[Rfam]
RNA sequence: CAUGAAACAUACUCCGUUCUUCUUCGCAUUCUUUUUUACCUUCCCCUGAACGGAGGCAUUUCGUCGUGUGAAACAGAAUGCGAAAACGAACAAUAAGGCCUCCCAAACCGGAGGCCUUUUUUAU
Numbered sequence: 001c002a003u004g005a006a007a008c009a010u011a012c013u014c015c016g017u018u019c020u021u022c023u024u025c026g027c028a029u030u031c032u033u034u035u036u037u038a039c040c041u042u043c044c045c046c047u048g049a050a051c052g053g054a055g056g057c058a059u060u061u062c063g064u065c066g067u068g069u070g071a072a073a074c075a076g077a078a079u080g081c082g083a084a085a086a087c088g089a090a091c092a093a094u095a096a097g098g099c100c101u102c103c104c105a106a107a108c109c110g111g112a113g114g115c116c117u118u119u120u121u122u123a124u
Stems, first nucleotide, its partner, number of pairs: 016091004021086001023084010034073001036071004042054003055065003095118009
RNA: Phenylalanine leader peptide
Organism: Escherichia albertii